[Rfam]
RNA sequence: CACUCCUGUUUCUGCCCCGUGUUCUGCGUACGCGAUAGAACACGCUGGUUCUGAUGAUGGAGGAGAGCAGGCCCGCUGGCGGCCGCCGCCGACUUGAUACUUCGGCGGACGGCGGCCGGCGGGAUCGUUCCGGGCACAGGCUCCCGUCUGCCGGCCUCCAUGCCGCAGGCGACGCCGGUCCCGGAUACAUAU
Number, nucleotide and partner (000 for none) at each position: 001c000002a000003c062004u061005c060006c059007u000008g000009u000010u000011u000012c000013u000014g000015c000016c048017c047018c044019g043020u042021g041022u040023u039024c038025u037026g000027c000028g000029u000030a000031c000032g000033c000034g000035a000036u000037a025038g024039a023040a022041c021042a020043c019044g018045c000046u000047g017048g016049u000050u000051c000052u000053g000054a000055u000056g000057a000058u000059g006060g005061a004062g003063g000064a000065g000066a000067g000068c000069a000070g000071g000072c123073c122074c121075g120076c119077u118078g117079g116080c115081g000082g113083c112084c111085g110086c108087c107088g106089c105090c000091g000092a000093c000094u000095u000096g000097a000098u000099a000100c000101u000102u000103c000104g000105g089106c088107g087108g086109a000110c085111g084112g083113c082114g000115g080116c079117c078118g077119g076120c075121g074122g073123g072124a000125u000126c000127g000128u000129u185130c184131c183132g182133g000134g000135c000136a179137c178138a000139g176140g000141c000142u000143c000144c000145c171146g170147u169148c168149u167150g166151c000152c165153g164154g163155c162156c000157u000158c000159c000160a000161u000162g155163c154164c153165g152166c150167a149168g148169g147170c146171g145172a000173c000174g000175c000176c139177g000178g137179u136180c000181c000182c132183g131184g130185a129186u000187a000188c000189a000190u000191a000192u000
This 192-nucleotide RNA sequence from Pichia membranifaciens belongs to the Rfam family "Small nucleolar RNA snR43". Rfam classes the family as an H/ACA-box small nucleolar RNA. Clan: SNORA9 clan. Gene Ontology terms of the family: nucleolus and RNA processing. The literature on the family includes a 1996 paper in Cell by Balakin et al., "The RNA world of the nucleolus: two major families of small RNAs defined by different box elements with related functions".